[Rfam]
Nucleotides: 183
Base pairs, nucleotide, nucleotide: 001183002182003181004180005179006178007177010066013063016060017059018058020056022054023053024052027049028048029047030046032043033042034041035040070138071137072136073135074134075133076132077131080128081127082126083125087121088120091117092116093115141172142171144169145168146167151163152162153161154160
Number, partner (000 for none) and nucleotide at each position: 001183u002182g003181a004180a005179a006178a007177c008000a009000g010066c011000g012000a013063g014000u015000c016060a017059a018058g019000c020056g021000g022054c023053c024052g025000c026000a027049a028048a029047u030046g031000c032043c033042g034041a035040g036000c037000c038000c039000g040035c041034u042033c043032g044000a045000g046030c047029a048028u049027u050000a051000u052024c053023g054022g055000a056020c057000a058018u059017u060016u061000g062000a063013c064000g065000a066010g067000c068000g069000u070138c071137c072136a073135a074134a075133c076132a077131u078000g079000a080128g081127c082126a083125c084000a085000g086000a087121g088120c089000a090000a091117c092116g093115c094000a095000a096000g097000g098000c099000c100000g101000c102000c103000a104000a105000g106000g107000c108000g109000g110000c111000c112000g113000c114000a115093g116092c117091g118000g119000g120088g121087u122000g123000a124000g125083g126082u127081g128080c129000g130000a131077a132076u133075g134074u135073u136072u137071g138070g139000a140000c141172c142171g143000a144169u145168g146167u147000g148000g149000g150000a151163g152162c153161g154160c155000g156000g157000g158000a159000c160154g161153c162152g163151c164000g165000a166000a167146g168145c169144a170000g171142c172141g173000c174000g175000u176000a177007g178006u179005u180004u181003u182002c183001a

A member of the RNA family "Clostridiales-1 RNA" from Sarcina sp. DSM 11001, 183 nucleotides long. Rfam 15.1 lists 1,172 matches to the family in 137 species. Rfam classes the family as a small RNA.